[Rfam]
RNA: Guanidine-II riboswitch aptamer (mini-ykkC)
RNA sequence: UGCCGCGGACGACCGCGGCACGCAUCUCCCACGUGGCGGGACGGCCCGC
Numbered sequence: 001u002g003c004c005g006c007g008g009a010c011g012a013c014c015g016c017g018g019c020a021c022g023c024a025u026c027u028c029c030c031a032c033g034u035g036g037c038g039g040g041a042c043g044g045c046c047c048g049c
Stems, first nucleotide, its partner, number of pairs: 001020008036049005